[Rfam]
RNA sequence: CUUUGUGAUUAAAUAUGGCGCUUAUGUGUAGAACCGGUUGUACUAUAUUUUUAAACUGGUUUUUCAUGUAAGAGUCCAAAUAGUAUCACAAAA
Numbered sequence: 001c002u003u004u005g006u007g008a009u010u011a012a013a014u015a016u017g018g019c020g021c022u023u024a025u026g027u028g029u030a031g032a033a034c035c036g037g038u039u040g041u042a043c044u045a046u047a048u049u050u051u052u053a054a055a056c057u058g059g060u061u062u063u064u065c066a067u068g069u070a071a072g073a074g075u076c077c078a079a080a081u082a083g084u085a086u087c088a089c090a091a092a093a
Stems, first nucleotide, its partner, number of pairs: 002092008017076003021072008030063010
This 93-nucleotide RNA from Schmidtea mediterranea belongs to the Rfam family "mir-2160 microRNA precursor family". Its family is annotated with miRNA-mediated post-transcriptional gene silencing and RISC complex in the Gene Ontology.